[Rfam]
RNA sequence: GGAUCGAUGAUAAAAACAAGUUUUUGAGGACUGUGAUUUACUUGUAACUAUGCCAAUCUGAGCUCC
Numbered sequence: 001g002g003a004u005c006g007a008u009g010a011u012a013a014a015a016a017c018a019a020g021u022u023u024u025u026g027a028g029g030a031c032u033g034u035g036a037u038u039u040a041c042u043u044g045u046a047a048c049u050a051u052g053c054c055a056a057u058c059u060g061a062g063c064u065c066c
Base pairs, nucleotide, nucleotide: 001066002065003064005062
About this RNA:
The record is a 66-nucleotide RNA from Mesocricetus auratus, which matches "Small nucleolar RNA SNORD109A" in Rfam. The literature on the family includes a 2001 paper in Hum Mol Genet by Runte et al., "The IC-SNURF-SNRPN transcript serves as a host for multiple small nucleolar RNA species and as an antisense RNA for UBE3A". Gene Ontology terms of the family: RNA processing and nucleolus. Rfam 15.1 lists 412 matches to the family in 134 species. The family is grouped with related families in Rfam's "SNORD74 clan". Pairs were carried over by alignment from the consensus structure, which was predicted with WAR. Humans have two copies of the SNORD109 gene, SNORD109A and SNORD109B. Taxonomically the source falls in Mesocricetus (Eukaryota, Opisthokonta, Bilateria, Chordata). A search with the family's covariance model found it, with a score of 41 bits.